[Rfam]
RNA: Y RNA
Organism: Chlorocebus sabaeus
RNA sequence: GGCUGGUCAAAGUACAGUGCUGUUUACAACUAAUUGAUCACAACUGAUUAUAGAUUUCUUGGUGUCUUCUCCACUCCAACUGUUUUACUUGACUAGCCUUAA
Numbered sequence: 001g002g003c004u005g006g007u008c009a010a011a012g013u014a015c016a017g018u019g020c021u022g023u024u025u026a027c028a029a030c031u032a033a034u035u036g037a038u039c040a041c042a043a044c045u046g047a048u049u050a051u052a053g054a055u056u057u058c059u060u061g062g063u064g065u066c067u068u069c070u071c072c073a074c075u076c077c078a079a080c081u082g083u084u085u086u087a088c089u090u091g092a093c094u095a096g097c098c099u100u101a102a
Stems, first nucleotide, its partner, number of pairs: 001098008010090002014086001016081003022076001029063002032060002